[Rfam]
RNA sequence: GUGGAAAGCGAAGGCGAAAGGCGGUCUGGACGGGAGUUCGAUUCUCCCCACCUCCACCAGAUGCCGAUGGCGGGCAAGCCGGUAACACAACGCCGUCGCCAUCUGCCGGGGGUGACCUGGUUUCGACAGGCUGAAUGAGUACCCGGAGUCACAACACGUCAGGCGCCUGACGUAAAUAGCGCAAACUCCAUAAACGUCAACAACGUUUACGUCGAAGGCAAGGACAUCGGCAGCCGUUUCGCUGGUCCCGUCAACGACGCAUGUGAACGGAUGACGGCCUAA
Numbered sequence: 001g002u003g004g005a006a007a008g009c010g011a012a013g014g015c016g017a018a019a020g021g022c023g024g025u026c027u028g029g030a031c032g033g034g035a036g037u038u039c040g041a042u043u044c045u046c047c048c049c050a051c052c053u054c055c056a057c058c059a060g061a062u063g064c065c066g067a068u069g070g071c072g073g074g075c076a077a078g079c080c081g082g083u084a085a086c087a088c089a090a091c092g093c094c095g096u097c098g099c100c101a102u103c104u105g106c107c108g109g110g111g112g113u114g115a116c117c118u119g120g121u122u123u124c125g126a127c128a129g130g131c132u133g134a135a136u137g138a139g140u141a142c143c144c145g146g147a148g149u150c151a152c153a154a155c156a157c158g159u160c161a162g163g164c165g166c167c168u169g170a171c172g173u174a175a176a177u178a179g180c181g182c183a184a185a186c187u188c189c190a191u192a193a194a195c196g197u198c199a200a201c202a203a204c205g206u207u208u209a210c211g212u213c214g215a216a217g218g219c220a221a222g223g224a225c226a227u228c229g230g231c232a233g234c235c236g237u238u239u240c241g242c243u244g245g246u247c248c249c250g251u252c253a254a255c256g257a258c259g260c261a262u263g264u265g266a267a268c269g270g271a272u273g274a275c276g277g278c279c280u281a282a
Base pairs, nucleotide, nucleotide: 001152013143022133023132024131026129027128028127032048033047034046035045036044049114050113051112052111053110054109055108157172158171159170160169
Rfam assigns this 282-nucleotide sequence from Noviherbaspirillum pedocola to the family "permuted transfer-messenger RNA". Lineage of the source: Bacteria > Pseudomonadati > Burkholderiales > Oxalobacteraceae > Noviherbaspirillum. About the family: Bacterial tmRNA, also known as 10Sa RNA or SsrA, is named for its dual tRNA and mRNA-like properties. A search with the family's covariance model found it, with a score of 98 bits. The base pairs follow the family's consensus structure, which is taken from published work.